RNA sequence: ACCAUUCAGGACUUGCGGGACAAGGUUCUUGGUGCCACCAUUGAGAACUCCAGGAUUGUCCGGCAGAUCGACAGC
Numbered sequence: 001a002c003c004a005u006u007c008a009g010g011a012c013u014u015g016c017g018g019g020a021c022a023a024g025g026u027u028c029u030u031g032g033u034g035c036c037a038c039c040a041u042u043g044a045g046a047a048c049u050c051c052a053g054g055a056u057u058g059u060c061c062g063g064c065a066g067a068u069c070g071a072c073a074g075c
Stems, first nucleotide, its partner, number of pairs: 010069002013066004018061006027055006034048001
This 75-nucleotide sequence from Callithrix jacchus belongs to the Rfam family "mir-492 microRNA precursor family". It scores 83 bits against the family's covariance model. For this family Rfam cites "Identification of novel homologous microRNA genes in the rhesus macaque genome" (Yue et al., BMC Genomics, 2008).